[Rfam]
This 148-nucleotide RNA sequence belongs to the Rfam family "Small nucleolar RNA SNORA12". The sequence is in the family's curated seed alignment. The literature on the family includes a 2005 paper in Nucleic Acids Res by Gu et al., "A novel experimental approach for systematic identification of box H/ACA snoRNAs from eukaryotes". The family's consensus secondary structure was predicted with RNAalifold. U108 belongs to the H/ACA family of snoRNAs. The sequence is predicted to guide the pseudouridylation of the U372 residue in the 28S rRNA subunit. However it has not been reported as a pseudouridylation site. Rfam links the family to the GO terms RNA processing and nucleolus.
RNA sequence: GGUUGUGGUGGUUUUCUUUCUGGUACAUUUGUUAAGUUUUCAAAUGAGCCUAACUCUGCCACAUAUAUCAUAUAGGAGCUGGCAAAGGCUUGAUGACAAAGAGAUCUCUCUCAAGCCUUUCCCACAUCAGAGGCUGGCUUUCACACAC
Numbered sequence: 001g002g003u004u005g006u007g008g009u010g011g012u013u014u015u016c017u018u019u020c021u022g023g024u025a026c027a028u029u030u031g032u033u034a035a036g037u038u039u040u041c042a043a044a045u046g047a048g049c050c051u052a053a054c055u056c057u058g059c060c061a062c063a064u065a066u067a068u069c070a071u072a073u074a075g076g077a078g079c080u081g082g083c084a085a086a087g088g089c090u091u092g093a094u095g096a097c098a099a100a101g102a103g104a105u106c107u108c109u110c111u112c113a114a115g116c117c118u119u120u121c122c123c124a125c126a127u128c129a130g131a132g133g134c135u136g137g138c139u140u141u142c143a144c145a146c147a148c
Base pairs, nucleotide, nucleotide: 005062006061007060008059009058010057011056022050023049024048026046027045028044029043030042031041075141076140077139078138079137080136081090082089083088107133108132109131110130111129